Record summary
The record is a 98-nucleotide RNA from Hungateiclostridiaceae bacterium KB18, which matches "Bacterial small signal recognition particle RNA" in Rfam.
Nucleotides: 098
Base pairs, nucleotide, nucleotide: 003093004092005091006090007089008085009084010083011082012081013080014076017074018073019072020071021070022067024065025064026063027062033058034057035056036055041050042049043048
Number, partner (000 for none) and nucleotide at each position: 001000g002000g003093a004092c005091a006090g007089g008085u009084c010083u011082g012081c013080g014076c015000g016000g017074c018073g019072g020071a021070g022067a023000g024065c025064c026063g027062u028000g029000a030000a031000c032000c033058a034057u035056g036055u037000c038000a039000g040000g041050c042049g043048g044000g045000g046000a047000a048043c049042c050041g051000a052000g053000c054000a055036g056035c057034a058033u059000u060000a061000a062027g063026c064025g065024g066000a067022u068000g069000u070021u071020u072019c073018c074017g075000g076014g077000c078000g079000a080013u081012g082011c083010a084009g085008g086000u087000c088000g089007c090006c091005u092004g093003u094000c095000c096000g097000c098000u

Background:
It scores 59 bits against the family's covariance model. The family's consensus secondary structure is taken from published work. Taxonomically the source falls in Oscillospiraceae (Bacteria, Bacillati, Bacillota, Eubacteriales). Its Rfam clan is "SRP clan".